RNA sequence: AGCUGCUGAUGAGAUUUGAUUCUGCCAAAUGACCUACUGUGAUAUUACCACUUCCGUUCCACUUUUCUCUGAGGCU
Numbered sequence: 001a002g003c004u005g006c007u008g009a010u011g012a013g014a015u016u017u018g019a020u021u022c023u024g025c026c027a028a029a030u031g032a033c034c035u036a037c038u039g040u041g042a043u044a045u046u047a048c049c050a051c052u053u054c055c056g057u058u059c060c061a062c063u064u065u066u067c068u069c070u071g072a073g074g075c076u
Stems, first nucleotide, its partner, number of pairs: 001076004
RNA: Small nucleolar RNA SNORD47